Shown here is a 71-nucleotide RNA from Nicotiana sylvestris, a member of the family "MIR6151 microRNA precursor family".
RNA sequence: AUUGGCUGGAUGAGUGUGAGGCAUUGUAUUGAUUUCACUCAAUCCGAUCCCCACAUUCAUCAAGGGUUCGU
Numbered sequence: 001a002u003u004g005g006c007u008g009g010a011u012g013a014g015u016g017u018g019a020g021g022c023a024u025u026g027u028a029u030u031g032a033u034u035u036c037a038c039u040c041a042a043u044c045c046g047a048u049c050c051c052c053a054c055a056u057u058c059a060u061c062a063a064g065g066g067u068u069c070g071u
Stems, first nucleotide, its partner, number of pairs: 006064002009061010020050002024047003028043005

Overview:
A search with the family's covariance model found it, with a score of 80 bits. Rfam 15.1 lists 930 matches to the family in 3 species.